[Rfam]
RNA sequence: CCAAAGGCUCUUUUCAGAGCCACCCACUAAUUCUGAAAAAGAGCCU
Numbered sequence: 001c002c003a004a005a006g007g008c009u010c011u012u013u014u015c016a017g018a019g020c021c022a023c024c025c026a027c028u029a030a031u032u033c034u035g036a037a038a039a040a041g042a043g044c045c046u
Base pairs, nucleotide, nucleotide: 006021007020008019009018010017011016
Shown here is a 46-nucleotide RNA sequence from Zosterops borbonicus, a member of the family "Histone 3' UTR stem-loop". The organism belongs to Zosterops, within Eukaryota. Gene Ontology term of the family: mRNA 3'-end processing by stem-loop binding and cleavage. It is annotated as a cis-regulatory element. On this family, see Williams and Marzluff, Nucleic Acids Res 1995: "The sequence of the stem and flanking sequences at the 3' end of histone mRNA are critical determinants for the binding of the stem-loop binding protein". About the family: The mRNAs of metazoan histone genes lack a poly-A tail. 3' end processing occurs at a site between a highly conserved stem-loop (modelled by this family) and a purine rich region around 20 nts downstream (the histone downstream element, or HDE). The stem-loop is bound by a 31 kDa stem-loop binding protein (SLBP - also termed the histone hairpin binding protein, or HBP). Together with U7 snRNA binding of the HDE, SLBP binding nucleate s the formation of the processing complex. The histone 3' UTR stem-loop is also involved in nucleocytoplasmic transport of the mRNA, and in stability regulation and translation efficiency in the cytoplasm.